[Rfam]
RNA sequence: GGUCACGAGUGCCAGCGCGAAGCCCCGGCUUGCUGGCCGGCAACCCUCCGACGCGGCGGGGUGCCCCGGGUGACGACCAGGCCAGUCCGGAGCGGACUUGGCAAGCGCGGCCC
Numbered sequence: 001g002g003u004c005a006c007g008a009g010u011g012c013c014a015g016c017g018c019g020a021a022g023c024c025c026c027g028g029c030u031u032g033c034u035g036g037c038c039g040g041c042a043a044c045c046c047u048c049c050g051a052c053g054c055g056g057c058g059g060g061g062u063g064c065c066c067c068g069g070g071u072g073a074c075g076a077c078c079a080g081g082c083c084a085g086u087c088c089g090g091a092g093c094g095g096a097c098u099u100g101g102c103a104a105g106c107g108c109g110g111c112c113c
Base pairs, nucleotide, nucleotide: 001078002077003076004075009038011037012036013035014034015033016032021030022029039065040064041063044061045060046059048056049055081102082101083100084099085097086096087095088094089093

A member of the RNA family "SAM (S-adenosyl methionine) riboswitch aptamer" from Sinomonas humi, 113 nucleotides long. Rfam's curators write: SAM-IV is a mRNA element that regulates gene expression via direct sensing of S-adenosylmethionine (SAM or AdoMet). SAM-IV riboswitches share conserved nucleotide positions with the previously described SAM-I riboswitches sequence analysis and molecular recognition experiments suggest that SAM-I and SAM-IV riboswitches share similar ligand binding sites, but have different scaffolds. Taxonomically the source falls in Sinomonas (Bacteria, Bacillati, Actinomycetota, Actinomycetes). The base pairs follow the family's consensus structure, which is taken from published work.